[Rfam]
RNA sequence: AGAGUUGUCCAGACGGUUGCGUAGUCUUUGACUAUGAGGAAAGUCCGAGCAGCACAGAGCAGGAUAACGGCUAACGGCCGCCGAGGGUGACCUUAGGGAAAGUGCAACAGAAAUAAACCGCCGUCUUUACGGUAAGGGUGGAAAGGCGAGGUAAGAGCUCACCGAGAGAGUGGAGACAUUCUCUGCCAUGUAAACCCUAUCCGCUGCAACACCGACCGGAGAGUUGGUUGCUCGCCACAUAACUCCGACGGGUGGCUUGAGCAAGGUGGCAACAUCUUGUCGAGAUAGAUAAUCGUCCACGACAGAACUCGGCUUACGGACAACUCUGCUA
Numbered sequence: 001a002g003a004g005u006u007g008u009c010c011a012g013a014c015g016g017u018u019g020c021g022u023a024g025u026c027u028u029u030g031a032c033u034a035u036g037a038g039g040a041a042a043g044u045c046c047g048a049g050c051a052g053c054a055c056a057g058a059g060c061a062g063g064a065u066a067a068c069g070g071c072u073a074a075c076g077g078c079c080g081c082c083g084a085g086g087g088u089g090a091c092c093u094u095a096g097g098g099a100a101a102g103u104g105c106a107a108c109a110g111a112a113a114u115a116a117a118c119c120g121c122c123g124u125c126u127u128u129a130c131g132g133u134a135a136g137g138g139u140g141g142a143a144a145g146g147c148g149a150g151g152u153a154a155g156a157g158c159u160c161a162c163c164g165a166g167a168g169a170g171u172g173g174a175g176a177c178a179u180u181c182u183c184u185g186c187c188a189u190g191u192a193a194a195c196c197c198u199a200u201c202c203g204c205u206g207c208a209a210c211a212c213c214g215a216c217c218g219g220a221g222a223g224u225u226g227g228u229u230g231c232u233c234g235c236c237a238c239a240u241a242a243c244u245c246c247g248a249c250g251g252g253u254g255g256c257u258u259g260a261g262c263a264a265g266g267u268g269g270c271a272a273c274a275u276c277u278u279g280u281c282g283a284g285a286u287a288g289a290u291a292a293u294c295g296u297c298c299a300c301g302a303c304a305g306a307a308c309u310c311g312g313c314u315u316a317c318g319g320a321c322a323a324c325u326c327u328g329c330u331a
Stems, first nucleotide, its partner, number of pairs: 001327010012297007020036007041315003045312005050206004057233004062202005068080004082096001083094004097197002102195002104191003118137002120133005145163002148160003164186001165184008210254004221244001225237004261280008
This 331-nucleotide RNA from Eubacterium coprostanoligenes belongs to the Rfam family "Bacterial RNase P class A". Ribonuclease P (RNase P) is a ubiquitous endoribonuclease, found in archaea, bacteria and eukarya as well as chloroplasts and mitochondria. A search with the family's covariance model found it, with a score of 271 bits. Rfam links the family to the GO terms tRNA processing, ribonuclease P activity and dimeric ribonuclease P complex. The organism belongs to Eubacterium, within Bacteria.